The family of this 143-nucleotide sequence from Virgisporangium ochraceum is "c-di-AMP riboswitch aptamer (ydaO/yuaA leader)". Pairs were carried over by alignment from the consensus structure. NCBI's taxonomy places the organism under Bacteria, Bacillati, Micromonosporales, Micromonosporaceae, Virgisporangium.
RNA sequence: CGCCCGGCACCGCCGAAUCUCCUUUCGGGCGAACCGGGGAACCACAAGCACCACUGGGGUGAAUCCGCCGCGUAUGCGGUGGUAGGGCGAAUCUUCCCGCCCGAAUCCGUCAGCUAACCCGGUAGGCGGUCACGGAAGAGGGA
Dot-bracket structure: ..........((((...((...........))((((((....((..........))(((.....((((..........))))..((((..........))))...))).........)))))).))))...............